[Rfam]
RNA sequence: AGGUGAAAAAGGCAAACCUAUCGAAAGAUAGGGACGCAAAGCCAAGGGUCUAAGGCGGGUAAGAGAUUCACCUUAUUAUUGACUGAAGUUAACCUGAGUGAAUAUCUUAGCCGCUAUGACAGCCGGUUGCCACU
Numbered sequence: 001a002g003g004u005g006a007a008a009a010a011g012g013c014a015a016a017c018c019u020a021u022c023g024a025a026a027g028a029u030a031g032g033g034a035c036g037c038a039a040a041g042c043c044a045a046g047g048g049u050c051u052a053a054g055g056c057g058g059g060u061a062a063g064a065g066a067u068u069c070a071c072c073u074u075a076u077u078a079u080u081g082a083c084u085g086a087a088g089u090u091a092a093c094c095u096g097a098g099u100g101a102a103u104a105u106c107u108u109a110g111c112c113g114c115u116a117u118g119a120c121a122g123c124c125g126g127u128u129g130c131c132a133c134u
Stems, first nucleotide, its partner, number of pairs: 012037002017032006040128004046124002048120003055114004
Notes
The record is a 134-nucleotide RNA from Anoxybacter fermentans, which matches "c-di-GMP-I riboswitch aptamer" in Rfam. GEMM was predicted in a large-scale screen for bacterial structured RNA regulatory elements. The source organism's lineage runs through Bacteria, Bacillati, Clostridia, Halanaerobiales and Anoxybacter. A search with the family's covariance model found it, with a score of 76 bits.